Shown here is a 233-nucleotide RNA sequence from Oncorhynchus tshawytscha, a member of the family "Small nucleolar RNA SNORA53".
About the family: The snoRNA ACA53 belongs to the H/ACA family of pseudouridylation guide snoRNAs.
The family has 28 seed sequences and 1,090 matches in Rfam 15.1.
It scores 106 bits against the family's covariance model.
By type it is an H/ACA-box small nucleolar RNA.
RNA sequence: AACACGCUCCUUAGAUCCACCUCUGGAGGGCAGUUCUGUGCUGGUGCUGUUGUCUGAGUGCUGCAGCUCCAGCUUGGAAGCCCUCAACGGCUUUUUGGCUGUACAGUUGGAGGUGCUUGAGUCAUUGGUGUGUGAGAGCAGUCUACCUGCCUCCCAGCACCUCUGCUGCACUGGCAACCCUCAGUUUCCCUGGUGGGCCCCUACCAGUGCAGCUAUGCUGGGGGAUGGACAAU
Numbered sequence: 001a002a003c004a005c006g007c008u009c010c011u012u013a014g015a016u017c018c019a020c021c022u023c024u025g026g027a028g029g030g031c032a033g034u035u036c037u038g039u040g041c042u043g044g045u046g047c048u049g050u051u052g053u054c055u056g057a058g059u060g061c062u063g064c065a066g067c068u069c070c071a072g073c074u075u076g077g078a079a080g081c082c083c084u085c086a087a088c089g090g091c092u093u094u095u096u097g098g099c100u101g102u103a104c105a106g107u108u109g110g111a112g113g114u115g116c117u118u119g120a121g122u123c124a125u126u127g128g129u130g131u132g133u134g135a136g137a138g139c140a141g142u143c144u145a146c147c148u149g150c151c152u153c154c155c156a157g158c159a160c161c162u163c164u165g166c167u168g169c170a171c172u173g174g175c176a177a178c179c180c181u182c183a184g185u186u187u188c189c190c191u192g193g194u195g196g197g198c199c200c201c202u203a204c205c206a207g208u209g210c211a212g213c214u215a216u217g218c219u220g221g222g223g224g225a226u227g228g229a230c231a232a233u
Base pairs, nucleotide, nucleotide: 002133003132004131005130006129007128008127010121011120012119013118014117018115019114020113021112022111023110024109025108026085027084028083029082034079035078036077037076040073041072042071043070044069046067047066048065049064052061054060087102088101089100090099091098092097147228148227149226151224154221156219157218158217159216167211168210169209170208171207172206173205174204178197179196180195